BsrG: a 245-nucleotide sequence from Bacillus sp. B-jedd. bsrE, bsrG and bsrH pair through intermolecular interactions with antisense sRNAs. They form type I toxin/antitoxin system that includes an mRNA encoding for a short, toxic peptide (bsrE, bsrG and bsrH) and an antitoxin that is comprised of an antisense RNA. bsrG encodes a 39-amino-acid toxin, and the 180 nucleotide antisense sRNA called SR4 acts as the antitoxin (they overlap by 123 nucleotides). SR4 interaction with the 3'UTR of bsrG RNA promotes bsrG degradation and inhibits its translation. Rfam classes the family as a small RNA. Its family is annotated with toxin activity and autolysis in the Gene Ontology. Pairs were carried over by alignment from the consensus structure, which was predicted with WAR.
[Rfam]
RNA sequence: AUCGGCGGUUCAUCAAGGGUGGUUAAAAGCACUCCCAGUGAAAGGGGGUGAUGCUUAAUGACGGUUUUUCAAGGAUUAAUGCUGGCCAUUUCGUUCGCUAGCCUGAUUGUUGCUGUACUGUCUGUAAACCAAAAAAAAUAACCCACCCUUGAGCCGGCAAGCAGAAGAGGCGGGUUAUUGCUUUAUUCCCAAUUAGCAUUUCCGGGAACCGUCGAUCAAGGUCCGGGCAUGCUCCAACAUGGCCG
Numbered sequence: 001a002u003c004g005g006c007g008g009u010u011c012a013u014c015a016a017g018g019g020u021g022g023u024u025a026a027a028a029g030c031a032c033u034c035c036c037a038g039u040g041a042a043a044g045g046g047g048g049u050g051a052u053g054c055u056u057a058a059u060g061a062c063g064g065u066u067u068u069u070c071a072a073g074g075a076u077u078a079a080u081g082c083u084g085g086c087c088a089u090u091u092c093g094u095u096c097g098c099u100a101g102c103c104u105g106a107u108u109g110u111u112g113c114u115g116u117a118c119u120g121u122c123u124g125u126a127a128a129c130c131a132a133a134a135a136a137a138a139u140a141a142c143c144c145a146c147c148c149u150u151g152a153g154c155c156g157g158c159a160a161g162c163a164g165a166a167g168a169g170g171c172g173g174g175u176u177a178u179u180g181c182u183u184u185a186u187u188c189c190c191a192a193u194u195a196g197c198a199u200u201u202c203c204g205g206g207a208a209c210c211g212u213c214g215a216u217c218a219a220g221g222u223c224c225g226g227g228c229a230u231g232c233u234c235c236a237a238c239a240u241g242g243c244c245g
Base pairs, nucleotide, nucleotide: 001216002215003214004213006211007210008209010207013152014151015150016149017148018147019146021143022142023141024140030050031049033048034047035046036045060122061121062120063119064118065117073087097113098112100111163182164181188206189205190204224245225244226243228241229240230239231238